[Rfam]
Shown here is a 103-nucleotide sequence from Microbacterium keratanolyticum, a member of the family "TPP riboswitch aptamer (THI element)". The family's consensus secondary structure is taken from published work. Gene Ontology term of the family: thiamine pyrophosphate binding. A search with the family's covariance model found it, with a score of 55 bits.
RNA sequence: AGAGGGGUCCGCGGGAGCCCAGGAGAGGGCUGAGAGGGCCACGUGCCGACCGCUGAACCUGAAACGGAUCAUGCCGUCGUAGGAAAGGGCACGCAAUGCGCAU
Numbered sequence: 001a002g003a004g005g006g007g008u009c010c011g012c013g014g015g016a017g018c019c020c021a022g023g024a025g026a027g028g029g030c031u032g033a034g035a036g037g038g039c040c041a042c043g044u045g046c047c048g049a050c051c052g053c054u055g056a057a058c059c060u061g062a063a064a065c066g067g068a069u070c071a072u073g074c075c076g077u078c079g080u081a082g083g084a085a086a087g088g089g090c091a092c093g094c095a096a097u098g099c100g101c102a103u
Base pairs, nucleotide, nucleotide: 007090008089009088010087011053012052013051014050017030018029019028020027037047038046039045058083059082060081061080064077065076066075067074